[Rfam]
RNA sequence: ACCGCUAAGCCAUCUCUCCAGCCCACAAAUAAAUCUUAAGAAGUUUGCUUAGAGGGCUGGAGAGAUGGCUUAGUGGU
Numbered sequence: 001a002c003c004g005c006u007a008a009g010c011c012a013u014c015u016c017u018c019c020a021g022c023c024c025a026c027a028a029a030u031a032a033a034u035c036u037u038a039a040g041a042a043g044u045u046u047g048c049u050u051a052g053a054g055g056g057c058u059g060g061a062g063a064g065a066u067g068g069c070u071u072a073g074u075g076g077u
Stems, first nucleotide, its partner, number of pairs: 002076023